Shown here is a 66-nucleotide RNA sequence from Haloarcula argentinensis, a member of the family "S15-Halobacteria ribosomal protein leader".

RNA sequence: ACGGGAACAGCACGACCGCAAAUCUGACUCGCUAUGGACUUUCAUAGCUCGGGAUUGCGGCCGUGU
Numbered sequence: 001a002c003g004g005g006a007a008c009a010g011c012a013c014g015a016c017c018g019c020a021a022a023u024c025u026g027a028c029u030c031g032c033u034a035u036g037g038a039c040u041u042u043c044a045u046a047g048c049u050c051g052g053g054a055u056u057g058c059g060g061c062c063g064u065g066u
Base pairs, nucleotide, nucleotide: 010066011065012064013063016060017059018058019057020056021055024053025052031048032047033046034045035044036043037042
Its Rfam clan is "Ribosomal Protein S15 Leader clan".
The sequence is in the family's curated seed alignment.
The family's RNA type in Rfam is cis-regulatory leader.